[Rfam]
RNA: Glycine riboswitch aptamer
RNA sequence: UAAGUUGUGGCGGGAGAGUCUGGGAACCGCGUGCGGGUCCCAGCGCCGUAGGAGCAAUUCCUCCCCGGGAAUCUCUCAGGCACCCGUACCGUCGCAGCGUG
Numbered sequence: 001u002a003a004g005u006u007g008u009g010g011c012g013g014g015a016g017a018g019u020c021u022g023g024g025a026a027c028c029g030c031g032u033g034c035g036g037g038u039c040c041c042a043g044c045g046c047c048g049u050a051g052g053a054g055c056a057a058u059u060c061c062u063c064c065c066c067g068g069g070a071a072u073c074u075c076u077c078a079g080g081c082a083c084c085c086g087u088a089c090c091g092u093c094g095c096a097g098c099g100u101g
Base pairs, nucleotide, nucleotide: 006096007095008094009093010092011091012090013089020043021042022041023040024039025038045081046080047079048077052075053074054073058068059067